[Rfam]
RNA sequence: CGCGGUCCUCGGUAGUGACUUUCGCUAGGACUAUUAAAGGUCUCAGCGCGGGUCUCGAUCGAAGACCAGA
Dot-bracket structure: ...((((.(((((...(((((.(((((((...........))).)))).)))))...))))).))))...
The record is a 70-nucleotide RNA from Arthrobacter sp. NIO-1057, which matches "Actino-pnp RNA" in Rfam.
The family's consensus secondary structure is taken from published work.
The source organism's lineage runs through Bacteria, Actinomycetes, Micrococcales, Micrococcaceae and Arthrobacter.
It scores 49 bits against the family's covariance model.